[Rfam]
RNA sequence: AAGACCUUUAACCCAGUCCAGAGAGGCUGAGAAGGAUGCGGAUAAGAAUACUUUCUAGGAAGUAUGCUUAGUUAUGGAGUAUAACGCGUAAACCCUCUCACCAACUGGUCGAGAGGGUUUUCUAAU
Dot-bracket structure: ..(.(((((....(((((......))))).))))).)...(.((((.(((((((....))))))).)))).)...............(.((((((((((...........)))))))))).)....

The family of this 126-nucleotide RNA from Bacillus sp. FJAT-49736 is "PyrR binding site". NCBI's taxonomy places the organism under Bacteria, Bacillati, Bacillota, Bacillaceae, Bacillus. From the family's description: This family represents the PyrR binding site and terminator structure. This RNA structure is found upstream of a variety of genes involved in pyrimidine biosynthesis and transport. The alignment also includes a portion of the antiterminator structure. The base pairs follow the family's consensus structure, which is taken from published work. It scores 58 bits against the family's covariance model.